[Rfam]
RNA sequence: UCACGAUAAUAGCAAACUUAUUGAAAAGUAAGGACGCAAAGCCACGGGCCUAAAGUAUGAUUAUGCUAAGGUAGCCGGGUUGCCGAA
Numbered sequence: 001u002c003a004c005g006a007u008a009a010u011a012g013c014a015a016a017c018u019u020a021u022u023g024a025a026a027a028g029u030a031a032g033g034a035c036g037c038a039a040a041g042c043c044a045c046g047g048g049c050c051u052a053a054a055g056u057a058u059g060a061u062u063a064u065g066c067u068a069a070g071g072u073a074g075c076c077g078g079g080u081u082g083c084c085g086a087a
Base pairs, nucleotide, nucleotide: 012037013036017032018031019030020029021028022027040081041080042079043078045077046076047075048072049071050070055066056065057064058063